[Rfam]
A member of the RNA family "mir-399 microRNA precursor family" from Cucumis melo, 171 nucleotides long. Pairs were carried over by alignment from the consensus structure, which was predicted with PFOLD. A reference for the family is Jones-Rhoades and Bartel (2004), "Computational Identification of Plant MicroRNAs and Their Targets, Including a Stress-Induced miRNA", Mol Cell. A search with the family's covariance model found it, with a score of 62 bits.
RNA sequence: GGUUGGAUUUCUGGGCAAUUACUCCAUUGGCAGUUGCCACCUUCCUUUUAAAACACACACACACUGACACAUACAUAUAUAUAUAUUAUAUAUUAUGUGAAAUCAUAUUGCCAAAUUUAAGGCAAUAACAAAAUCGCUACUGCCAAAGGAGAUUUGCCCGGUAAUGCUCCC
Number, nucleotide and partner (000 for none) at each position: 001g000002g000003u000004u000005g167006g000007a165008u164009u163010u000011c161012u160013g159014g158015g157016c156017a155018a154019u000020u000021a000022c151023u150024c149025c148026a000027u000028u145029g144030g143031c142032a141033g140034u139035u000036g137037c000038c000039a000040c000041c000042u000043u000044c000045c000046u000047u000048u000049u000050a000051a000052a000053a000054c000055a000056c000057a000058c000059a000060c000061a000062c000063a000064c000065u000066g000067a000068c000069a000070c000071a000072u000073a000074c000075a000076u000077a000078u000079a000080u000081a000082u000083a000084u000085a000086u000087u000088a000089u000090a000091u000092a000093u000094u000095a000096u000097g000098u000099g000100a000101a000102a000103u000104c000105a000106u000107a000108u000109u000110g000111c000112c000113a000114a000115a000116u000117u000118u000119a000120a000121g000122g000123c000124a000125a000126u000127a000128a000129c000130a000131a000132a000133a000134u000135c000136g000137c036138u000139a034140c033141u032142g031143c030144c029145a028146a000147a000148g025149g024150a023151g022152a000153u000154u018155u017156g016157c015158c014159c013160g012161g011162u000163a009164a008165u007166g000167c005168u000169c000170c000171c000
The source organism's lineage runs through Eukaryota, Tracheophyta, Pentapetalae, Benincaseae and Cucumis. Rfam links the family to the GO terms RISC complex and miRNA-mediated post-transcriptional gene silencing. Rfam 15.1 lists 2,396 matches to the family in 221 species. Rfam's curators write: mir-399 was identified in both Arabidopsis thaliana and Oryza sativa computationally and was later experimentally verified. mir-399 is thought to target mRNAs coding for a phosphatase transporter. The mature sequence is excised from the 3' arm of the hairpin.